Small nucleolar RNA R21: an 81-nucleotide RNA sequence from Solanum commersonii. The family's RNA type in Rfam is C/D-box small nucleolar RNA. Its family is annotated with RNA processing and nucleolus in the Gene Ontology. For this family Rfam cites "Identification of 66 box C/D snoRNAs in Arabidopsis thaliana: extensive gene duplications generated multiple isoforms predicting new ribosomal RNA 2'-O-methylation sites" (Barneche et al., J Mol Biol, 2001). The organism belongs to Solanum, within Eukaryota.

RNA sequence: AAUCCCUCUGAUGAAUUAGCUUGAAUAAUUUAAAAGUAGUGGCCUGAUGACCAUUGAUGAAAAGCUUUGUUCUGAGGGAUU
Numbered sequence: 001a002a003u004c005c006c007u008c009u010g011a012u013g014a015a016u017u018a019g020c021u022u023g024a025a026u027a028a029u030u031u032a033a034a035a036g037u038a039g040u041g042g043c044c045u046g047a048u049g050a051c052c053a054u055u056g057a058u059g060a061a062a063a064g065c066u067u068u069g070u071u072c073u074g075a076g077g078g079a080u081u
Stems, first nucleotide, its partner, number of pairs: 001081006